Purine riboswitch aptamer: a 102-nucleotide sequence from Viridibacillus arenosi.

RNA sequence: AUUAUAUAUAUUGAUUACCCUCAUAUAUGUUCGAAAAUAAGGUUCGGAUGUCUCUACCAGGUUACCGUAAAUGACUUGACUAUGAAGGUGAAUGACAGCGUG
Dot-bracket structure: .................((.(((((...(((((((.......)))))))........(((((((.......)))))))..))))).))..............
Background
Gene Ontology term of the family: purine nucleobase biosynthetic process. Pairs were carried over by alignment from the consensus structure, which is taken from published work. It scores 82 bits against the family's covariance model.